[Rfam]
RNA sequence: AUGAAAAUCAAUUGCUUACCGAAGACAGCUAGCGGCUUUGCCUUAAUUUCUAGCCGAGGAAGAUCCAGUUAGGUCACACCGAUGUGGCUUUAUUAAGAUCCUCUAUGUCUUUGGACAUAGAGUUUUUUUAUUAAAAAC
Dot-bracket structure: ...........................(((((.(((...))).......)))))..............................................(((((((((....)))))))))................
Numbered sequence: 001a002u003g004a005a006a007a008u009c010a011a012u013u014g015c016u017u018a019c020c021g022a023a024g025a026c027a028g029c030u031a032g033c034g035g036c037u038u039u040g041c042c043u044u045a046a047u048u049u050c051u052a053g054c055c056g057a058g059g060a061a062g063a064u065c066c067a068g069u070u071a072g073g074u075c076a077c078a079c080c081g082a083u084g085u086g087g088c089u090u091u092a093u094u095a096a097g098a099u100c101c102u103c104u105a106u107g108u109c110u111u112u113g114g115a116c117a118u119a120g121a122g123u124u125u126u127u128u129u130a131u132u133a134a135a136a137a138c
Stems, first nucleotide, its partner, number of pairs: 028054005034042003101122009